[Rfam]
RNA sequence: AUGCAGGAUAAGUUACAAUAUGGCUGUGAAGUGCCAUGUUGUCGUUCCCCCUGCUUAAAGCAAUUUGAUUCAUACUAUCCCUGUCUGUUUUGACUCCAGAAAAGCCAGGGACGCUUGGUCUCAUACAC
Number, nucleotide and partner (000 for none) at each position: 001a000002u000003g054004c053005a052006g051007g050008a000009u000010a000011a000012g000013u000014u000015a042016c041017a040018a039019u038020a037021u036022g035023g034024c033025u000026g000027u000028g000029a000030a000031g000032u000033g024034c023035c022036a021037u020038g019039u018040u017041g016042u015043c000044g000045u000046u000047c000048c000049c000050c007051c006052u005053g004054c003055u000056u000057a000058a000059a000060g000061c000062a000063a000064u000065u000066u000067g000068a000069u000070u000071c000072a000073u000074a000075c000076u000077a000078u000079c000080c109081c108082u107083g106084u000085c104086u103087g000088u101089u000090u000091u000092g000093a000094c000095u000096c000097c000098a000099g000100a000101a088102a000103a086104g085105c000106c083107a082108g081109g080110g000111a000112c000113g000114c000115u000116u000117g000118g000119u000120c000121u000122c000123a000124u000125a000126c000127a000128c000

The record is a 128-nucleotide RNA from Microcaecilia unicolor, which matches "Small nucleolar RNA SNORA63" in Rfam. E3 belongs to the H/ACA class of snoRNAs and is involved in the processing of eukaryotic pre-rRNA and has regions of complementarity to 18S rRNA. E3 is encoded in introns in the gene for protein synthesis initiation factor 4AII. The literature on the family includes a 1997 paper in Proc Natl Acad Sci U S A by Mishra and Eliceiri, "Three small nucleolar RNAs that are involved in ribosomal RNA precursor processing". Rfam classes the family as an H/ACA-box small nucleolar RNA. Rfam links the family to the GO terms RNA processing and nucleolus. The organism belongs to Microcaecilia, within Eukaryota.